The record is an 85-nucleotide RNA sequence from Sus scrofa, which matches "mir-877 microRNA precursor family" in Rfam. Pairs were carried over by alignment from the consensus structure, which was predicted with RNAalifold. The organism belongs to Sus, within Eukaryota.
RNA sequence: GUAGAGGAGAUGGCGCAGGGGACACGGGCCAAGACUAGGGGUUGCUGGGACCUCCCGACAUAGGUCCUCCUCUCCCUCCUCCCAG
Numbered sequence: 001g002u003a004g005a006g007g008a009g010a011u012g013g014c015g016c017a018g019g020g021g022a023c024a025c026g027g028g029c030c031a032a033g034a035c036u037a038g039g040g041g042u043u044g045c046u047g048g049g050a051c052c053u054c055c056c057g058a059c060a061u062a063g064g065u066c067c068u069c070c071u072c073u074c075c076c077u078c079c080u081c082c083c084a085g
Stems, first nucleotide, its partner, number of pairs: 004081006012075002015072001018069006026061001028059001036057001038055001039053003042049002